[Rfam]
RNA sequence: GAUUUAUACAGAAGUGGCGAGAGAUCAGGCUCUAUGACCCACUGACAACCCCCCGGUCAAUUCGGGGAAGGUGCCAAUUCCUGUCCCGUAAGGGAAAUAUAAAUU
Numbered sequence: 001g002a003u004u005u006a007u008a009c010a011g012a013a014g015u016g017g018c019g020a021g022a023g024a025u026c027a028g029g030c031u032c033u034a035u036g037a038c039c040c041a042c043u044g045a046c047a048a049c050c051c052c053c054c055g056g057u058c059a060a061u062u063c064g065g066g067g068a069a070g071g072u073g074c075c076a077a078u079u080c081c082u083g084u085c086c087c088g089u090a091a092g093g094g095a096a097a098u099a100u101a102a103a104u105u
Stems, first nucleotide, its partner, number of pairs: 001105008013043005021032003026083004044075001046073002049071002051067004079097001084094003

The family of this 105-nucleotide RNA from Daejeonella lutea is "SAM riboswitch aptamer (S box leader)". Lineage of the source: Bacteria > Sphingobacteriia > Sphingobacteriales > Sphingobacteriaceae > Daejeonella. From the family's description: The SAM riboswitch is found upstream of a number of genes which code for proteins involved in methionine or cysteine biosynthesis in Gram-positive bacteria.